RNA sequence: GGCACUGGAUAGGGGUGCCCAUGCGACGGGCUGAGAGUGCGGUAUGCACAACCCUUGAACCUGAACCGGCUAAUACCGGCGGAGGAAAUGCCAGCAGUUCUCGC
Number, nucleotide and partner (000 for none) at each position: 001g000002g000003c000004a000005c000006u000007g091008g000009a089010u088011a055012g054013g053014g052015g000016u000017g031018c030019c029020c028021a000022u000023g000024c000025g000026a000027c000028g020029g019030g018031c017032u000033g000034a000035g000036a000037g000038u048039g047040c046041g045042g000043u000044a000045u041046g040047c039048a038049c000050a000051a000052c014053c013054c012055u011056u000057g000058a000059a000060c085061c084062u083063g000064a000065a000066c079067c078068g077069g076070c000071u000072a000073a000074u000075a000076c069077c068078g067079g066080c000081g000082g000083a062084g061085g060086a000087a000088a010089u009090g000091c007092c000093a000094g000095c000096a000097g000098u000099u000100c000101u000102c000103g000104c000
TPP riboswitch aptamer (THI element): a 104-nucleotide RNA from Salinicola sp. MIT1003. NCBI's taxonomy places the organism under Bacteria, Pseudomonadati, Gammaproteobacteria, Halomonadaceae, Salinicola. Gene Ontology term of the family: thiamine pyrophosphate binding. Rfam's curators write: Vitamin B(1) in its active form thiamin pyrophosphate (TPP) is an essential coenzyme that is synthesised by coupling of pyrimidine and thiazole moieties in bacteria.